Background: The record is a 125-nucleotide RNA sequence from Brassica napus, which matches "Small nucleolar RNA SNORD14" in Rfam. Lineage of the source: Eukaryota > Viridiplantae > Streptophyta > malvids > Brassica. U14 small nucleolar RNA (U14 snoRNA) is required for early cleavages of eukaryotic precursor rRNAs. In yeasts, this molecule possess a stem-loop region (known as the Y-domain) which is essential for function. A similar structure, but with a different consensus sequence, is found in plants, but is absent in vertebrates. A search with the family's covariance model found it, with a score of 74 bits. The family's consensus secondary structure was predicted with PFOLD. The literature on the family includes a 1996 paper in Nucleic Acids Res by Samarsky et al., "An essential domain in Saccharomyces cerevisiae U14 snoRNA is absent in vertebrates, but conserved in other yeasts".
[Rfam]
RNA sequence: GAUCUAUGAGGAUAAAUGUUUAAGGCUUGUUUCUCGAAACAUUCGCAGUGGCCGCCUAAAGCUUUCGCCUUUCGCCGGGCUUGAGAGCUAAUGCAGCUCCUAUCCUUCCUUGGAUGUCUGAGAUC
Dot-bracket structure: ((((........................................................((((((................)))))).................................))))